[Rfam]
RNA sequence: AGAUAGAUAGUAUGGUAGAAAGAUUCGUCUAUUUCUUUCUACCAUACUAUCUAUCUCUUAGUCUAGAAAGUUGUAAUG
Dot-bracket structure: .....((((((((((((((((((..........))))))))))))))))))...........................
A member of the RNA family "Plastid-psbM 3UTR RNA" from Striga hermonthica, 78 nucleotides long. Pairs were carried over by alignment from the consensus structure, which was predicted with LocARNA. The organism belongs to Striga, within Eukaryota. Rfam's curators write: Plastid psbM is a non-coding RNA (ncRNA) recognised in plastids. It was found in the three prime untranslated region (3UTR) of psbM gene, its 3UTR location suggests a role in transcript maturation. It is annotated as a cis-regulatory element.